[Rfam]
RNA: Mammalian CPEB3 ribozyme
RNA sequence: AGUCCAGCUCCAGGGGCCACAGCAGAAGAUUCACACCACAGCUCCUGUCAGAUGAAUCUGUAAUUUUUGUU
Numbered sequence: 001a002g003u004c005c006a007g008c009u010c011c012a013g014g015g016g017c018c019a020c021a022g023c024a025g026a027a028g029a030u031u032c033a034c035a036c037c038a039c040a041g042c043u044c045c046u047g048u049c050a051g052a053u054g055a056a057u058c059u060g061u062a063a064u065u066u067u068u069g070u071u
Stems, first nucleotide, its partner, number of pairs: 013045005021071007028039001049060004